[Rfam]
RNA sequence: AAUUUAUCAAGAGAGACCGAGGGAUAGGCCCUAUGACGUCCGGCAACCCCCAGCACGAGCUGGGAAGGUGCCAAUUCCUACAGAAUGAUUUCAUUCUGAAAGAUAACCC
Numbered sequence: 001a002a003u004u005u006a007u008c009a010a011g012a013g014a015g016a017c018c019g020a021g022g023g024a025u026a027g028g029c030c031c032u033a034u035g036a037c038g039u040c041c042g043g044c045a046a047c048c049c050c051c052a053g054c055a056c057g058a059g060c061u062g063g064g065a066a067g068g069u070g071c072c073a074a075u076u077c078c079u080a081c082a083g084a085a086u087g088a089u090u091u092c093a094u095u096c097u098g099a100a101a102g103a104u105a106a107c108c109c
Base pairs, nucleotide, nucleotide: 004106005105006104007103008102013041015040016039017038021031022030023029025080026079027078028077042072043071044070045069047068048067049064050063051062052061076101081098082097083096084095085094086093
Dot-bracket structure: ...(((((....(.(((...(((.[[[[)))......))))((((.((((((........))))..))))))...(]]]]((((((......))))))..))))))...